A member of the RNA family "Group II catalytic intron D1-D4-3" from Roseburia inulinivorans, 178 nucleotides long. Pairs were carried over by alignment from the consensus structure. The match comes from Rfam's covariance-model search (129 bits).
RNA sequence: UCUGUCGUGAGGUGGAAUCUGAAGGAAGCUGUAAGCAAAUCUCUGGUUCGACGAACGGAAAUCACAUAUAAGGCUAGGCUACGAGAGAUAAGUUGGCUUGAAGCAACGAAGUCUAAUAACUAUCAUCUUUGUAGCAGCAGAGUAAAUGUGGCGGAUAUAUGGAGAGAAAGAGUGCGCA
Dot-bracket structure: ((((((....)))))).............(((...(...(((((((((((...........((((((.....(((.(.((((((.((((..((((........))))...))))..............))))))).....)))..)))))))))))...))))))....)...)))..